The family of this 49-nucleotide RNA from Aquamicrobium lusatiense is "Guanidine-II riboswitch aptamer (mini-ykkC)".
Rfam links the family to the GO term regulation of gene expression.
The base pairs follow the family's consensus structure, which is taken from published work.

[Rfam]
RNA sequence: GAGUGAGGACGGCCUCUCUUCAAAACCAUCGAAAACCGGGACGGCCCGG
Numbered sequence: 001g002a003g004u005g006a007g008g009a010c011g012g013c014c015u016c017u018c019u020u021c022a023a024a025a026c027c028a029u030c031g032a033a034a035a036c037c038g039g040g041a042c043g044g045c046c047c048g049g
Base pairs, nucleotide, nucleotide: 001020002019003018005016006015007014008013036049037048038047039046040045